[Rfam]
RNA: FMN riboswitch aptamer (RFN element)
RNA sequence: AAAGAACUUCGGGGCAAGGUGCAAUUCCUGACCGGCAGUAAAAGUCUGCGAACGGGGAGGUCUCCCUCUCCGCCGAGCUGGUGAAAUUCCAGCACCGACGGUGAACCGCUUUUUCUCUUUUGGAAAAAAGGCGGCAAAGUCCGGAUGAUAGAAGAUUCUU
Numbered sequence: 001a002a003a004g005a006a007c008u009u010c011g012g013g014g015c016a017a018g019g020u021g022c023a024a025u026u027c028c029u030g031a032c033c034g035g036c037a038g039u040a041a042a043a044g045u046c047u048g049c050g051a052a053c054g055g056g057g058a059g060g061u062c063u064c065c066c067u068c069u070c071c072g073c074c075g076a077g078c079u080g081g082u083g084a085a086a087u088u089c090c091a092g093c094a095c096c097g098a099c100g101g102u103g104a105a106c107c108g109c110u111u112u113u114u115c116u117c118u119u120u121u122g123g124a125a126a127a128a129a130g131g132c133g134g135c136a137a138a139g140u141c142c143g144g145a146u147g148a149u150a151g152a153a154g155a156u157u158c159u160u
Stems, first nucleotide, its partner, number of pairs: 004157002007154004017029003033097002035049004044095002053072002077093005099143003